[Rfam]
RNA: Mammalian CPEB3 ribozyme
Organism: Geotrypetes seraphini
RNA sequence: UAAACUACACAAGGGUCCAAAGCAGAAGGCUUCAUGUCCCAGCCUCUGUCAUAUUUCUGCAGAUUUGAAAAUUCUGCA
Numbered sequence: 001u002a003a004a005c006u007a008c009a010c011a012a013g014g015g016u017c018c019a020a021a022g023c024a025g026a027a028g029g030c031u032u033c034a035u036g037u038c039c040c041a042g043c044c045u046c047u048g049u050c051a052u053a054u055u056u057c058u059g060c061a062g063a064u065u066u067g068a069a070a071a072u073u074c075u076g077c078a
Stems, first nucleotide, its partner, number of pairs: 013046003017042001022077006028040002050067002053064004